[Rfam]
A member of the RNA family "ARRPOF RNA", 259 nucleotides long.
RNA sequence: AAAAUCCUUACAUGAAUAUUAGUUACAAAUAUUUCAAUGCAGCAUACUUGCAUUGAGCUGCUAAGCACGAAGCAGUAAGUGGUUAUGUAUAUAGCGACUUUAGGAAUUGUUGCAGGCUGAGAACGAGCGACUAAACGGUUUGGAGGAUAACUGAUUUAGGGACUUUCUUUAUACCUCUAUAAAAUCGAAGUAAGGCGAUUGAGGGCGAAUGCUAGGGCAGUUAUUAGCAGAUUUACACUAAGUAAAGUAAAGAAAGAGG
Numbered sequence: 001a002a003a004a005u006c007c008u009u010a011c012a013u014g015a016a017u018a019u020u021a022g023u024u025a026c027a028a029a030u031a032u033u034u035c036a037a038u039g040c041a042g043c044a045u046a047c048u049u050g051c052a053u054u055g056a057g058c059u060g061c062u063a064a065g066c067a068c069g070a071a072g073c074a075g076u077a078a079g080u081g082g083u084u085a086u087g088u089a090u091a092u093a094g095c096g097a098c099u100u101u102a103g104g105a106a107u108u109g110u111u112g113c114a115g116g117c118u119g120a121g122a123a124c125g126a127g128c129g130a131c132u133a134a135a136c137g138g139u140u141u142g143g144a145g146g147a148u149a150a151c152u153g154a155u156u157u158a159g160g161g162a163c164u165u166u167c168u169u170u171a172u173a174c175c176u177c178u179a180u181a182a183a184a185u186c187g188a189a190g191u192a193a194g195g196c197g198a199u200u201g202a203g204g205g206c207g208a209a210u211g212c213u214a215g216g217g218c219a220g221u222u223a224u225u226a227g228c229a230g231a232u233u234u235a236c237a238c239u240a241a242g243u244a245a246a247g248u249a250a251a252g253a254a255a256g257a258g259g
Stems, first nucleotide, its partner, number of pairs: 006195006034056009058075005077100003082095005116128002121141004148223006163256009174204004183200005210229005232246005
Dot-bracket structure: .....[[[[[[......................(((((((((.....))))))))).(((((........))))).(((..(((((....)))))..)))...............[[...((((..]].........))))......{{{{{{.........(((((((((..((((.....(((((..]]]]]]))))))))).....(((((...}}}}}}.)))))..(((((.....))))).)))))))))...

It is one of the family's seed sequences.